[Rfam]
Nucleotides: 103
Base pairs, nucleotide, nucleotide: 043096044095045094046093047092048091054084055083056082057081058080061076062075063074064073
Number, partner (000 for none) and nucleotide at each position: 001000c002000u003000u004000c005000u006000g007000g008000c009000a010000a011000u012000a013000g014000c015000u016000c017000u018000g019000a020000a021000g022000g023000c024000u025000g026000a027000a028000g029000a030000a031000c032000u033000c034000a035000c036000a037000a038000a039000u040000u041000u042000u043096g044095u045094g046093u047092u048091g049000c050000c051000a052000u053000c054084a055083g056082c057081u058080u059000c060000a061076a062075c063074u064073c065000g066000u067000g068000a069000u070000c071000a072000u073064g074063a075062g076061u077000u078000g079000u080058g081057a082056g083055u084054u085000a086000a087000a088000u089000u090000a091048c092047a093046a094045c095044a096043c097000u098000a099000c100000a101000u102000u103000u
Notes:
A member of the RNA family "Small nucleolar RNA snoR97" from Zingiber officinale, 103 nucleotides long. The family's RNA type in Rfam is H/ACA-box small nucleolar RNA. Rfam links the family to the GO terms RNA processing and nucleolus. The source organism's lineage runs through Eukaryota, Magnoliopsida, Mesangiospermae, Zingiberales and Zingiber.